The family of this 132-nucleotide RNA sequence from Anoxybacillus sp. B7M1 is "Ribosomal protein L20 leader". Gene Ontology term of the family: regulation of gene expression. The literature on the family includes a 1994 paper in Prog Nucleic Acid Res Mol Biol by Zengel and Lindahl, "Diverse mechanisms for regulating ribosomal protein synthesis in Escherichia coli". The family's RNA type in Rfam is cis-regulatory leader. The family's consensus secondary structure was predicted with CMfinder. The source organism's lineage runs through Bacteria, Bacillota, Bacilli, Caryophanales and Anoxybacillus. A search with the family's covariance model found it, with a score of 63 bits.
[Rfam]
RNA sequence: UGACAAAAGCAGAAGCACCCGGCUUCUCACCUGUCUGACGCGGAUCGCUGUUAGCGGGUUGUUACGGUUCGUCUAUGAAAAGUCCGAUCGUAAAAGCAUGGGUGUCGUAUGCACUCAUGCUUUUUUGUAUGC
Numbered sequence: 001u002g003a004c005a006a007a008a009g010c011a012g013a014a015g016c017a018c019c020c021g022g023c024u025u026c027u028c029a030c031c032u033g034u035c036u037g038a039c040g041c042g043g044a045u046c047g048c049u050g051u052u053a054g055c056g057g058g059u060u061g062u063u064a065c066g067g068u069u070c071g072u073c074u075a076u077g078a079a080a081a082g083u084c085c086g087a088u089c090g091u092a093a094a095a096g097c098a099u100g101g102g103u104g105u106c107g108u109a110u111g112c113a114c115u116c117a118u119g120c121u122u123u124u125u126u127g128u129a130u131g132c
Base pairs, nucleotide, nucleotide: 011027012026013025014024015023016022029059030058031057037052038051039050040048041047097119098118099117100116101115102114103113104112105111